Rfam assigns this 225-nucleotide RNA from Cellulomonas sp. JH27-2 to the family "Actinobacteria sRNA Ms_IGR-5". The base pairs follow the family's consensus structure. Lineage of the source: Bacteria > Actinomycetota > Micrococcales > Cellulomonadaceae > Cellulomonas. A search with the family's covariance model found it, with a score of 80 bits.

[Rfam]
RNA sequence: ACAUGGGAAAGGAGGUGGUCCACGACAUGAUUUCUUCUUGGACGCGUGAGGUGACUGUCCGCUAGUCGCCCGAGCACUCGGACGGAUUGCCAUCCGCCCGCAGUCGAGCCGGUACCGGCACGGCGGCGAGCGAAUCUCCGGCAGUCACCGCAGCCCGUGGGAGCCGCGACCUCGUCCGUCGCGGCAGGGCCCCUCGCGAGGGGUCCGGCCCACGGGCUGUUCCCU
Numbered sequence: 001a002c003a004u005g006g007g008a009a010a011g012g013a014g015g016u017g018g019u020c021c022a023c024g025a026c027a028u029g030a031u032u033u034c035u036u037c038u039u040g041g042a043c044g045c046g047u048g049a050g051g052u053g054a055c056u057g058u059c060c061g062c063u064a065g066u067c068g069c070c071c072g073a074g075c076a077c078u079c080g081g082a083c084g085g086a087u088u089g090c091c092a093u094c095c096g097c098c099c100g101c102a103g104u105c106g107a108g109c110c111g112g113u114a115c116c117g118g119c120a121c122g123g124c125g126g127c128g129a130g131c132g133a134a135u136c137u138c139c140g141g142c143a144g145u146c147a148c149c150g151c152a153g154c155c156c157g158u159g160g161g162a163g164c165c166g167c168g169a170c171c172u173c174g175u176c177c178g179u180c181g182c183g184g185c186a187g188g189g190c191c192c193c194u195c196g197c198g199a200g201g202g203g204u205c206c207g208g209c210c211c212a213c214g215g216g217c218u219g220u221u222c223c224c225u
Base pairs, nucleotide, nucleotide: 014059015058016057017056018055019054060132061131062130063129065127066126068124069123070122151219152218153217154216155215156214157213158212159211160210161209165183166182167181168180169179170178